The record is a 47-nucleotide RNA sequence from Photorhabdus laumondii, which matches "Guanidine-II riboswitch aptamer (mini-ykkC)" in Rfam. Its family is annotated with regulation of gene expression in the Gene Ontology. It is one of the family's seed sequences. Taxonomically the source falls in Photorhabdus laumondii subsp. laumondii (Bacteria, Pseudomonadota, Enterobacterales, Photorhabdus).

[Rfam]
RNA sequence: UAUCCGGGACGACCUGGAUAUACUGCCGUUUUCUGGGGACGACUCCA
Numbered sequence: 001u002a003u004c005c006g007g008g009a010c011g012a013c014c015u016g017g018a019u020a021u022a023c024u025g026c027c028g029u030u031u032u033c034u035g036g037g038g039a040c041g042a043c044u045c046c047a
Stems, first nucleotide, its partner, number of pairs: 001020008034047005